[Rfam]
RNA sequence: UCACAGUAACACUGUUUGAGUAUCCUGAAAACGGGCUUUUCAGAAUGGUGUUGCGGUAAAUAAAUAAUUUAGGAGUGCAUAGUGGCCCGUAUAGCAGGCAUUAACAUUCCUGAU
Dot-bracket structure: ...(.((((((((..........[[[.....[[[[....{{{....)))))))).).............................]]]]......]]]............}}}.
The record is a 114-nucleotide sequence from Photorhabdus laumondii, which matches "Alpha operon ribosome binding site" in Rfam. The family's RNA type in Rfam is cis-regulatory element. The source organism's lineage runs through Bacteria, Pseudomonadati, Pseudomonadota, Morganellaceae and Photorhabdus laumondii subsp. laumondii. Rfam's curators write: The bacterial alpha operon ribosome binding site is surrounded by this complex pseudoknotted structure. Translation of the mRNA produces 4 ribosomal protein products, one of which (S4) acts as a translational repressor by binding to the nested pseudoknot region. The mechanism of repression is thought to involve a conformational switch in the pseudoknot region and ribosome entrapment. The family's consensus secondary structure is taken from published work.